[Rfam]
RNA sequence: AUGUUUCUGUCUUUGGUUAUCUAGCUGUAUGAGUGUUUUGGUCUUCAUAAAGCUAGAUAACCGAAAGUAAAAAUGA
Numbered sequence: 001a002u003g004u005u006u007c008u009g010u011c012u013u014u015g016g017u018u019a020u021c022u023a024g025c026u027g028u029a030u031g032a033g034u035g036u037u038u039u040g041g042u043c044u045u046c047a048u049a050a051a052g053c054u055a056g057a058u059a060a061c062c063g064a065a066a067g068u069a070a071a072a073a074u075g076a
Base pairs, nucleotide, nucleotide: 002075003074004073005072008069009068010067012065013064014063015062016061017060018059019058020057021056022055023054024053025052026051028049029048030047031046032045033044
Rfam assigns this 76-nucleotide sequence from Coturnix japonica to the family "mir-9/mir-79 microRNA precursor family". A search with the family's covariance model found it, with a score of 76 bits. Lineage of the source: Eukaryota > Tetrapoda > Archelosauria > Neognathae > Coturnix.